[Rfam]
RNA: Small nucleolar RNA psi28S-2876
RNA sequence: AUUGUGGCCAACUACGAUGGCUUGCGGUUCGGUUUGUGAGACUGUUUGGCUUAUAAAGUUGGCUAAAUCGAAAAUCUAUCUUAUCCGUAGCGUCACAAUGUGUAAAUUUAGCCGACAUUUGGCGUAUGAACUGAAGAGACAUUUUU
Numbered sequence: 001a002u003u004g005u006g007g008c009c010a011a012c013u014a015c016g017a018u019g020g021c022u023u024g025c026g027g028u029u030c031g032g033u034u035u036g037u038g039a040g041a042c043u044g045u046u047u048g049g050c051u052u053a054u055a056a057a058g059u060u061g062g063c064u065a066a067a068u069c070g071a072a073a074a075u076c077u078a079u080c081u082u083a084u085c086c087g088u089a090g091c092g093u094c095a096c097a098a099u100g101u102g103u104a105a106a107u108u109u110a111g112c113c114g115a116c117a118u119u120u121g122g123c124g125u126a127u128g129a130a131c132u133g134a135a136g137a138g139a140c141a142u143u144u145u146u
Stems, first nucleotide, its partner, number of pairs: 005065008024045005092140003099133002106127002109124001111123005